[Rfam]
RNA sequence: UUGACCUUAAUGAUGUAGAUGGAGUAAAGCUUUCAAGACCUCCAUUUGCUGAUGGCAUGAAUCAA
Numbered sequence: 001u002u003g004a005c006c007u008u009a010a011u012g013a014u015g016u017a018g019a020u021g022g023a024g025u026a027a028a029g030c031u032u033u034c035a036a037g038a039c040c041u042c043c044a045u046u047u048g049c050u051g052a053u054g055g056c057a058u059g060a061a062u063c064a065a
Base pairs, nucleotide, nucleotide: 001065002064003063004062015049016048017047018046019045020044021043022042023041024040030037031036
The record is a 65-nucleotide RNA sequence from Orycteropus afer, which matches "Selenocysteine insertion sequence 1" in Rfam. Rfam describes the family as follows. The incorporation of selenocysteine into a protein sequence is directed by an in-frame UGA codon (usually a stop codon) within the coding region of the mRNA. Selenoprotein mRNAs contain a conserved secondary structure in the 3' UTR that is required for the distinction of UGA stop from UGA selenocysteine. The organism belongs to Orycteropus afer, within Eukaryota. By type it is a cis-regulatory element. Pairs were carried over by alignment from the consensus structure, which is taken from published work. On this family, see Walczak et al., RNA 1996: "A novel RNA structural motif in the selenocysteine insertion element of eukaryotic selenoprotein mRNAs".